[Rfam]
RNA sequence: UAAAUGCCAGGCGAUGGAGUUCGCCGUAAAUGCGCGAAAGUGCCGAUAACUCCUACAAAUAA
Numbered sequence: 001u002a003a004a005u006g007c008c009a010g011g012c013g014a015u016g017g018a019g020u021u022c023g024c025c026g027u028a029a030a031u032g033c034g035c036g037a038a039a040g041u042g043c044c045g046a047u048a049a050c051u052c053c054u055a056c057a058a059a060u061a062a
Base pairs, nucleotide, nucleotide: 010025011024012023013022016053017052018051019050020049021048032043033042034041035040

Shown here is a 62-nucleotide RNA sequence from Caldicoprobacter faecalis, a member of the family "Fluoride riboswitch aptamer (crcB RNA motif)". Lineage of the source: Bacteria > Bacillati > Bacillota > Caldicoprobacterales > Caldicoprobacter. The family's consensus secondary structure is taken from published work. Its family is annotated with response to fluoride and positive regulation of gene expression in the Gene Ontology.